[Rfam]
Nucleotides: 257
Stems, first nucleotide, its partner, number of pairs: 005025004012018002029040001031038001057175004062170001067122006077113004123156002132148003136144001160236001162235005179222009242255005
Number, partner (000 for none) and nucleotide at each position: 001000a002000a003000u004000a005025u006024a007023g008022c009000u010000u011000u012018a013017u014000u015000c016000c017013a018012u019000c020000u021000u022008g023007u024006u025005a026000a027000u028000c029040a030000u031038g032000c033000a034000u035000u036000g037000c038031u039000u040029u041000a042000u043000a044000a045000g046000u047000g048000c049000a050000u051000g052000u053000a054000a055000a056000a057175u058174u059173c060172g061000a062170c063000u064000a065000a066000u067122u068121g069120c070119u071118g072117a073000a074000a075000a076000g077113u078112c079111c080110u081000u082000u083000a084000u085000c086000a087000u088000u089000u090000a091000u092000a093000u094000u095000u096000a097000u098000u099000a100000u101000a102000a103000a104000u105000a106000u107000a108000c109000u110080a111079g112078g113077a114000u115000a116000a117072u118071c119070a120069g121068c122067a123156g124155g125000g126000a127000a128000u129000a130000u131000u132148u133147u134146u135000u136144u137000u138000u139000u140000a141000u142000u143000u144136a145000u146134a147133a148132a149000a150000a151000u152000a153000u154000c155124c156123u157000u158000c159000a160236a161000c162235g163234a164233c165232u166231a167000u168000a169000c170062g171000u172060c173059g174058a175057a176000a177000a178000a179222u180221a181220c182219u183218a184217u185216u186215u187214a188000c189000u190000u191000a192000a193000u194000a195000u196000u197000u198000a199000u200000u201000u202000u203000a204000u205000a206000g207000c208000u209000u210000u211000a212000u213000u214187u215186a216185g217184a218183u219182a220181g221180u222179a223000u224000u225000a226000u227000g228000a229000u230000a231166u232165a233164g234163u235162c236160u237000a238000g239000u240000c241000a242255a243254u244253u245252a246251g247000g248000u249000a250000a251246c252245u253244a254243g255242u256000u257000u

Rfam assigns this 257-nucleotide RNA from Neofusicoccum parvum to the family "Group I catalytic intron".
Taxonomically the source falls in Neofusicoccum parvum (Eukaryota, Opisthokonta, leotiomyceta, Neofusicoccum).
The base pairs follow the family's consensus structure, which is taken from published work.
It scores 56 bits against the family's covariance model.
Its family is annotated with Group I intron splicing in the Gene Ontology.